[Rfam]
Nucleotides: 131
Stems, first nucleotide, its partner, number of pairs: 015122007023114001033094001036091001040089004047063006069082005
Number, partner (000 for none) and nucleotide at each position: 001000u002000c003000g004000c005000g006000u007000a008000g009000u010000u011000a012000a013000g014000c015122g016121u017120g018119c019118g020117g021116g022000a023114u024000g025000a026000g027000a028000a029000c030000c031000u032000g033094c034000a035000g036091c037000a038000g039000g040089u041088u042087c043086g044000a045000c046000u047063g048062a049061a050060u051059c052058g053000c054000g055000c056000a057000g058052c059051g060050a061049u062048u063047c064000a065000g066000g067000c068000u069082g070081a071080u072079g073078c074000g075000u076000c077000a078073g079072c080071a081070u082069u083000a084000c085000c086043c087042g088041g089040a090000g091036g092000g093000c094033g095000a096000g097000g098000c099000c100000c101000g102000c103000c104000c105000g106000c107000u108000g109000a110000g111000g112000c113000a114023a115000u116021c117020c118019u119018g120017c121016a122015c123000g124000a125000c126000c127000c128000a129000c130000c131000c
This 131-nucleotide sequence from Pantoea ananatis belongs to the Rfam family "RtT RNA".
From the family's description: This family represents a bacterial cis-regulatory element known as RtT RNA. The exact function of RtT is unknown although it is thought that it may be involved in changing the cellular response in relation to amino acid starvation.
The source organism's lineage runs through Bacteria, Pseudomonadota, Gammaproteobacteria, Erwiniaceae and Pantoea ananatis.